Trans-activation response element (TAR): a 60-nucleotide RNA sequence from Lentivirus humimdef1. The source organism's lineage runs through Viruses, Pararnavirae, Ortervirales, Lentivirus and Lentivirus humimdef1. Its family is annotated with RISC complex and miRNA-mediated post-transcriptional gene silencing in the Gene Ontology. Rfam classes the family as a microRNA precursor. Rfam's curators write: This family represents the HIV trans-activation response (TAR) element which is known to be required for the trans-activation of the viral promoter and for virus replication. The TAR hairpin acts as a binding site for the Tat protein and this interaction stimulates the activity of the long terminal repeat promoter. Further experiments have shown that TAR acts as a miRNA that protects against apoptosis. A reference for the family is Kulinski et al. (2003), "The apical loop of the HIV-1 TAR RNA hairpin is stabilized by a cross-loop base pair", J Biol Chem.
[Rfam]
RNA sequence: GGGUCUCUCUUGUUAGACCAGAUAGAGUCUGAGAACUCUCUGGCUAGCGAGGGAACCCAC
Numbered sequence: 001g002g003g004u005c006u007c008u009c010u011u012g013u014u015a016g017a018c019c020a021g022a023u024a025g026a027g028u029c030u031g032a033g034a035a036c037u038c039u040c041u042g043g044c045u046a047g048c049g050a051g052g053g054a055a056c057c058c059a060c
Stems, first nucleotide, its partner, number of pairs: 001058004006054011018043005025038004